Rfam assigns this 58-nucleotide sequence to the family "nhaA-I RNA". Pairs were carried over by alignment from the consensus structure, which is taken from published work. The sequence is in the family's curated seed alignment.
RNA sequence: GGGUGUACACGGUGCAUAUUGCUGCGUGACAGGUUUUAGCGUAGGUCGGGCCGCCACG
Numbered sequence: 001g002g003g004u005g006u007a008c009a010c011g012g013u014g015c016a017u018a019u020u021g022c023u024g025c026g027u028g029a030c031a032g033g034u035u036u037u038a039g040c041g042u043a044g045g046u047c048g049g050g051c052c053g054c055c056a057c058g
Stems, first nucleotide, its partner, number of pairs: 005030002008028004040058003044055003